[Rfam]
RNA sequence: UGGCGGGGGAGCACUGCAACGAGAGGAGCGUGCGGUUUAAUUGGAUUCAACGCCGGAAAACUCACCAAAGCCGACUGUUAUAUGAAGACCAGCGUAACGAGCUUGUCGGAUUUUCAGAGAGGUAGUGCAUGGCCGUCGUCAGUUCGUACCGUAAGGCGUUCUGUUAAGUCAGAUAACGAACGAGACCCCCAUCGUCAUUUGCUAACCCUUUCUCCGGAAAGGGCGCACUAUGGCGAGACCGCUGGCGUGAAGUCAGAGGAAGGCGGGGGCAACGGUAGGUCAGUAUGCUCCGAAUGCUUUGGGCUACACGCGCGCUACAAAGGACGGGACAAUGGGCAGCUACUCCGAGAGGAGAUGCUAUCCCGAAACCCGUUCGUAGUUCGGAUCGUGGGCUGUAACUCGCCCUCGUGAAGCUGGAUUUCGUAGUAAUCGCGUCUCAAAAUGGCGCGGUGAAUAUGCCCCUGCUCCUUGCACACACCGCCCGUCAAACCAUCUUAGUUUGGGGUGGGUGAGGCUACCUUUUAUUGGGGUAUUCGAGCCUGCCUUAGACAAGGAGGGUUAAGUCGUAACAAGGUACCUGUAGGGGAACCUGCAGGUGGA
Numbered sequence: 001u002g003g004c005g006g007g008g009g010a011g012c013a014c015u016g017c018a019a020c021g022a023g024a025g026g027a028g029c030g031u032g033c034g035g036u037u038u039a040a041u042u043g044g045a046u047u048c049a050a051c052g053c054c055g056g057a058a059a060a061c062u063c064a065c066c067a068a069a070g071c072c073g074a075c076u077g078u079u080a081u082a083u084g085a086a087g088a089c090c091a092g093c094g095u096a097a098c099g100a101g102c103u104u105g106u107c108g109g110a111u112u113u114u115c116a117g118a119g120a121g122g123u124a125g126u127g128c129a130u131g132g133c134c135g136u137c138g139u140c141a142g143u144u145c146g147u148a149c150c151g152u153a154a155g156g157c158g159u160u161c162u163g164u165u166a167a168g169u170c171a172g173a174u175a176a177c178g179a180a181c182g183a184g185a186c187c188c189c190c191a192u193c194g195u196c197a198u199u200u201g202c203u204a205a206c207c208c209u210u211u212c213u214c215c216g217g218a219a220a221g222g223g224c225g226c227a228c229u230a231u232g233g234c235g236a237g238a239c240c241g242c243u244g245g246c247g248u249g250a251a252g253u254c255a256g257a258g259g260a261a262g263g264c265g266g267g268g269g270c271a272a273c274g275g276u277a278g279g280u281c282a283g284u285a286u287g288c289u290c291c292g293a294a295u296g297c298u299u300u301g302g303g304c305u306a307c308a309c310g311c312g313c314g315c316u317a318c319a320a321a322g323g324a325c326g327g328g329a330c331a332a333u334g335g336g337c338a339g340c341u342a343c344u345c346c347g348a349g350a351g352g353a354g355a356u357g358c359u360a361u362c363c364c365g366a367a368a369c370c371c372g373u374u375c376g377u378a379g380u381u382c383g384g385a386u387c388g389u390g391g392g393c394u395g396u397a398a399c400u401c402g403c404c405c406u407c408g409u410g411a412a413g414c415u416g417g418a419u420u421u422c423g424u425a426g427u428a429a430u431c432g433c434g435u436c437u438c439a440a441a442a443u444g445g446c447g448c449g450g451u452g453a454a455u456a457u458g459c460c461c462c463u464g465c466u467c468c469u470u471g472c473a474c475a476c477a478c479c480g481c482c483c484g485u486c487a488a489a490c491c492a493u494c495u496u497a498g499u500u501u502g503g504g505g506u507g508g509g510u511g512a513g514g515c516u517a518c519c520u521u522u523u524a525u526u527g528g529g530g531u532a533u534u535c536g537a538g539c540c541u542g543c544c545u546u547a548g549a550c551a552a553g554g555a556g557g558g559u560u561a562a563g564u565c566g567u568a569a570c571a572a573g574g575u576a577c578c579u580g581u582a583g584g585g586g587a588a589c590c591u592g593c594a595g596g597u598g599g600a
Stems, first nucleotide, its partner, number of pairs: 001475002003472003007469007016459002020423005025318001027316008035307002041056004065302007075117003080111001087107003091103003121291002124289004130285002132280003135276004142181006149156002160173004187268004192236007202225001206223007239259002242256005322375007334364003339358002343354004382413001387408002390405004429451008478573001480570001483566002486563001488560004493555003498550013513535002516532006575598010

This 600-nucleotide part of an RNA from uncultured marine group II euryarchaeote KM3-136-D10 belongs to the Rfam family "Archaeal small subunit ribosomal RNA". Gene Ontology terms of the family: ribosome and structural constituent of ribosome. Rfam 15.1 lists 709 matches to the family in 491 species. On this family, see Yusupov et al., Science 2001: "Crystal structure of the ribosome at 5.5 A resolution". The sequence is in the family's curated seed alignment.